RNA: Small nucleolar RNA snR161
Organism: Saccharomyces kudriavzevii
RNA sequence: UAAAAUACAAACACCCAGUAUUUUCGGCCACCCGCGUAUCACUCACCCGUUGGUGGCCUCUCUAAGCUGGCAGAUAGACGUUCAAUGAACCACUUAAGUUCCGUUGUGAAGUUGUUAGUCUUUAAAGACUGUAUUUCAUGACACUACUGUAGUUCGCACACAC
Dot-bracket structure: ..............(((((.......((((((.(((...........))).))))))........)))))...............(((((.((.........((((((((((...((.((......)).)).))))))))))......)).))))).......